Rfam assigns this 110-nucleotide RNA sequence from Klebsiella pneumoniae to the family "iscR stability element". It is one of the family's seed sequences. The base pairs follow the family's consensus structure, which is taken from published work. The organism belongs to Klebsiella pneumoniae subsp. pneumoniae, within Bacteria. Rfam links the family to the GO term response to host iron concentration. A reference for the family is Desnoyers et al. (2009), "Small RNA-induced differential degradation of the polycistronic mRNA iscRSUA", EMBO J.

RNA sequence: UAAAGAGCUUUCAGAAUCAGGCCGGGAUGCUCCGACAUUCCGUGUACUCGGUCGUACAUCAAGCCGGUUGCCUGAUUCCUUGCAUUGAGUGAUGUACGGAGUUUAAGAGC
Numbered sequence: 001u002a003a004a005g006a007g008c009u010u011u012c013a014g015a016a017u018c019a020g021g022c023c024g025g026g027a028u029g030c031u032c033c034g035a036c037a038u039u040c041c042g043u044g045u046a047c048u049c050g051g052u053c054g055u056a057c058a059u060c061a062a063g064c065c066g067g068u069u070g071c072c073u074g075a076u077u078c079c080u081u082g083c084a085u086u087g088a089g090u091g092a093u094g095u096a097c098g099g100a101g102u103u104u105a106a107g108a109g110c
Base pairs, nucleotide, nucleotide: 010101011100012099014078015077016076017075018074019073020072021071022070023042024041025040026039027038028037046068047067049066050065051064081096083094084093085092